[Rfam]
RNA sequence: AUGCAUAAGUUGAAUUUACUCGGAUUCCCCUUUAAGACAACAUGGAUGAUACAGAUUUGAGUUUUUGAUGCA
Numbered sequence: 001a002u003g004c005a006u007a008a009g010u011u012g013a014a015u016u017u018a019c020u021c022g023g024a025u026u027c028c029c030c031u032u033u034a035a036g037a038c039a040a041c042a043u044g045g046a047u048g049a050u051a052c053a054g055a056u057u058u059g060a061g062u063u064u065u066u067g068a069u070g071c072a
Stems, first nucleotide, its partner, number of pairs: 002072004

Notes:
Shown here is a 72-nucleotide sequence from Zingiber officinale, a member of the family "Small nucleolar RNA snoR60". The match comes from Rfam's covariance-model search (75 bits). The literature on the family includes a 2000 paper in J Biol Chem by Barneche et al., "Fibrillarin genes encode both a conserved nucleolar protein and a novel small nucleolar RNA involved in ribosomal RNA methylation in Arabidopsis thaliana". By type it is a C/D-box small nucleolar RNA.